[Rfam]
RNA sequence: GACAAGCGCUGAUCAGCGCCUGCCAUGUGCAACCCCCGGUACCUGACACGGCCGGGGUUC
Numbered sequence: 001g002a003c004a005a006g007c008g009c010u011g012a013u014c015a016g017c018g019c020c021u022g023c024c025a026u027g028u029g030c031a032a033c034c035c036c037c038g039g040u041a042c043c044u045g046a047c048a049c050g051g052c053c054g055g056g057g058u059u060c
Stems, first nucleotide, its partner, number of pairs: 001024001003022002006019004031059002034057007
Shown here is a 60-nucleotide sequence from Rubrivivax sp. A210, a member of the family "L17-Actino-Proteobacteria ribosomal protein leader".
The match comes from Rfam's covariance-model search (40 bits).
For this family Rfam cites "Discovery of 20 novel ribosomal leader candidates in bacteria and archaea" (Eckert and Weinberg, BMC Microbiol, 2020).
By type it is a cis-regulatory leader.